DUF805b RNA: a 35-nucleotide RNA sequence from Chitinophaga ginsengisegetis.
It scores 41 bits against the family's covariance model.
The family's RNA type in Rfam is cis-regulatory element.
RNA sequence: CAGGGGGAUGCUGAAAACCCGGAACAGAGUAGGCA
Numbered sequence: 001c002a003g004g005g006g007g008a009u010g011c012u013g014a015a016a017a018c019c020c021g022g023a024a025c026a027g028a029g030u031a032g033g034c035a
Stems, first nucleotide, its partner, number of pairs: 003020003010034003

Taxonomically the source falls in Chitinophaga (Bacteria, Bacteroidota, Chitinophagia, Chitinophagaceae).